The record is a 75-nucleotide sequence from Streptomyces apricus, which matches "ASpks TB sRNA" in Rfam. A reference for the family is Arnvig and Young (2009), "Identification of small RNAs in Mycobacterium tuberculosis", Mol Microbiol. The base pairs follow the family's consensus structure, which is taken from published work. Taxonomically the source falls in Streptomyces (Bacteria, Bacillati, Actinomycetota, Streptomycetaceae).
RNA sequence: CUUUAACGAGCCCAGCCAGAGUGGCCGGUCCUCGGGCCGGUCCUGUCCGUAGGUGGCCAGCAGUGCUUGGGCUUC
Numbered sequence: 001c002u003u004u005a006a007c008g009a010g011c012c013c014a015g016c017c018a019g020a021g022u023g024g025c026c027g028g029u030c031c032u033c034g035g036g037c038c039g040g041u042c043c044u045g046u047c048c049g050u051a052g053g054u055g056g057c058c059a060g061c062a063g064u065g066c067u068u069g070g071g072c073u074u075c
Stems, first nucleotide, its partner, number of pairs: 015025003031071003038065002043060003047056003